[Rfam]
RNA: MIR2593 microRNA precursor family
RNA sequence: UUAUAAGCAAAGUUUUGUAUUUUAGAUUCAUUCAUUAAAUGAUGCAUGUGGUCUGUGAUAAAGACUGCAUACAUCAUUUAAUAAAUGAAUCUAAAAUGCAAAGUUUUACUUAUAU
Numbered sequence: 001u002u003a004u005a006a007g008c009a010a011a012g013u014u015u016u017g018u019a020u021u022u023u024a025g026a027u028u029c030a031u032u033c034a035u036u037a038a039a040u041g042a043u044g045c046a047u048g049u050g051g052u053c054u055g056u057g058a059u060a061a062a063g064a065c066u067g068c069a070u071a072c073a074u075c076a077u078u079u080a081a082u083a084a085a086u087g088a089a090u091c092u093a094a095a096a097u098g099c100a101a102a103g104u105u106u107u108a109c110u111u112a113u114a115u
Base pairs, nucleotide, nucleotide: 002114003113004112005111006110007109009107010106011105012104013103015101016100017099018098019097020096021095022094023093024092025091027089028088029087030086031085032084034082035081036080037079038078039077040076041075042074043073044072049067050066051065052064